[Rfam]
RNA sequence: AGCACAAAUGAUGAGCAAUAAGGGACUUAAUACUGAGUUAAGUACUUGAUGUCUUUUUUUUCCAUACUGAUGUGC
Numbered sequence: 001a002g003c004a005c006a007a008a009u010g011a012u013g014a015g016c017a018a019u020a021a022g023g024g025a026c027u028u029a030a031u032a033c034u035g036a037g038u039u040a041a042g043u044a045c046u047u048g049a050u051g052u053c054u055u056u057u058u059u060u061u062c063c064a065u066a067c068u069g070a071u072g073u074g075c
Stems, first nucleotide, its partner, number of pairs: 002075005
Small nucleolar RNA SNORD82: a 75-nucleotide RNA from Atractosteus spatula. The organism belongs to Atractosteus, within Eukaryota. The base pairs follow the family's consensus structure, which was predicted with PFOLD. The literature on the family includes a 2002 paper in Mol Cell Biol by Galardi et al., "Purified box C/D snoRNPs are able to reproduce site-specific 2'-O-methylation of target RNA in vitro". The family's RNA type in Rfam is C/D-box small nucleolar RNA. snoRNA U82 or Z25 is found in both humans and mice.